Notes:
The family of this 102-nucleotide sequence from Romboutsia hominis is "Purine riboswitch aptamer". Its family is annotated with purine nucleobase biosynthetic process in the Gene Ontology. The match comes from Rfam's covariance-model search (78 bits). Pairs were carried over by alignment from the consensus structure, which is taken from published work. Riboswitches are metabolite binding domains within certain messenger RNAs that serve as precision sensors for their corresponding targets. Allosteric rearrangement of mRNA structure is mediated by ligand binding, and this results in modulation of gene expression. A class of riboswitches that selectively recognises guanine and becomes saturated at concentrations as low as 5 nM. In Bacillus subtilis, this mRNA motif is located on at least five separate transcriptional units that together encode 17 genes that are mostly involved in purine transport and purine nucleotide biosynthesis.
RNA sequence: AUAGAUACAUAAAAAACUACCUGUAUAUUUUUGAAGAUAUGGUUCAAAUGUUUCUACAUAGCUACCGUAAAUAGCUUGACUACAGGAGCUUAAUAUAAAGUA
Numbered sequence: 001a002u003a004g005a006u007a008c009a010u011a012a013a014a015a016a017c018u019a020c021c022u023g024u025a026u027a028u029u030u031u032u033g034a035a036g037a038u039a040u041g042g043u044u045c046a047a048a049u050g051u052u053u054c055u056a057c058a059u060a061g062c063u064a065c066c067g068u069a070a071a072u073a074g075c076u077u078g079a080c081u082a083c084a085g086g087a088g089c090u091u092a093a094u095a096u097a098a099a100g101u102a
Stems, first nucleotide, its partner, number of pairs: 018088001020086006030048006060076005